Glycine riboswitch aptamer: a 102-nucleotide RNA sequence from Renibacterium salmoninarum. The source organism's lineage runs through Bacteria, Actinomycetota, Micrococcales, Micrococcaceae and Renibacterium salmoninarum. From the family's description: This family represents the bacterial glycine riboswitch.
RNA sequence: CAACUCUGGAAAGUAGUGUCACCCCAUCCGGGUAACACUCACCGACGGUGCAAGCGGAGACGUCUCCGCGGAAACUCUCAGGUCCAAUACAGAGCGGGGAGG
Numbered sequence: 001c002a003a004c005u006c007u008g009g010a011a012a013g014u015a016g017u018g019u020c021a022c023c024c025c026a027u028c029c030g031g032g033u034a035a036c037a038c039u040c041a042c043c044g045a046c047g048g049u050g051c052a053a054g055c056g057g058a059g060a061c062g063u064c065u066c067c068g069c070g071g072a073a074a075c076u077c078u079c080a081g082g083u084c085c086a087a088u089a090c091a092g093a094g095c096g097g098g099g100a101g102g
Stems, first nucleotide, its partner, number of pairs: 001097001004094005015039004041083003044079002048077001050075001055070002